[Rfam]
RNA: Bacterial RNase P class A
RNA sequence: UUGGCGUGAUGAGUGAUCGCGAGAAAUCGAGGAAAGUCCGAGCUGUGCUAAGACAAGGCUCCAUCUAACAGAUGGCUAUGGUAACAUAAGGGAUAGUGCAACAGAAAGAAGACUUCCACAUUUGUGGUAAAGGUGAAACGGUAGAGUAAGAGCCUACCAGUGUUUAUGGUAACAUAAACAGCUAUGUAAACCCAGCUUGCAGCAAGAAGGGGUGGUAAAGUCUUAGAAUGAUACCCUUCGCUUGAGCUAAAUUGCAAAAUUUAGUCUAGAUAAAUGAUCACUUGAAAAACAGAACUCGGCUUAUAGUCACGCCAAUUUA
Numbered sequence: 001u002u003g004g005c006g007u008g009a010u011g012a013g014u015g016a017u018c019g020c021g022a023g024a025a026a027u028c029g030a031g032g033a034a035a036g037u038c039c040g041a042g043c044u045g046u047g048c049u050a051a052g053a054c055a056a057g058g059c060u061c062c063a064u065c066u067a068a069c070a071g072a073u074g075g076c077u078a079u080g081g082u083a084a085c086a087u088a089a090g091g092g093a094u095a096g097u098g099c100a101a102c103a104g105a106a107a108g109a110a111g112a113c114u115u116c117c118a119c120a121u122u123u124g125u126g127g128u129a130a131a132g133g134u135g136a137a138a139c140g141g142u143a144g145a146g147u148a149a150g151a152g153c154c155u156a157c158c159a160g161u162g163u164u165u166a167u168g169g170u171a172a173c174a175u176a177a178a179c180a181g182c183u184a185u186g187u188a189a190a191c192c193c194a195g196c197u198u199g200c201a202g203c204a205a206g207a208a209g210g211g212g213u214g215g216u217a218a219a220g221u222c223u224u225a226g227a228a229u230g231a232u233a234c235c236c237u238u239c240g241c242u243u244g245a246g247c248u249a250a251a252u253u254g255c256a257a258a259a260u261u262u263a264g265u266c267u268a269g270a271u272a273a274a275u276g277a278u279c280a281c282u283u284g285a286a287a288a289a290c291a292g293a294a295c296u297c298g299g300c301u302u303a304u305a306g307u308c309a310c311g312c313c314a315a316u317u318u319a
Stems, first nucleotide, its partner, number of pairs: 001315010011304001012282007020029003034302003038299005043202004056198005061075005076090001077088004091193002096191002098187003113132002116127004140158005160182001161180008206239006246265008